The record is a 69-nucleotide RNA from Acyrthosiphon pisum, which matches "mir-2 microRNA precursor family" in Rfam. The match comes from Rfam's covariance-model search (58 bits).

RNA sequence: UAGGCCGUCAAAAUGGAUGUGAAGUGGUUUUUUUUACUAUUCAUAUCACAGCCACUUUGAUGAGCCGAU
Number, nucleotide and partner (000 for none) at each position: 001u000002a000003g000004g000005c000006c062007g061008u060009c059010a058011a057012a056013a000014u054015g053016g052017a000018u050019g049020u048021g047022a046023a000024g000025u045026g044027g000028u000029u000030u000031u000032u000033u000034u000035u000036a000037c000038u000039a000040u000041u000042c000043a000044u026045a025046u022047c021048a020049c019050a018051g000052c016053c015054a014055c000056u012057u011058u010059g009060a008061u007062g006063a000064g000065c000066c000067g000068a000069u000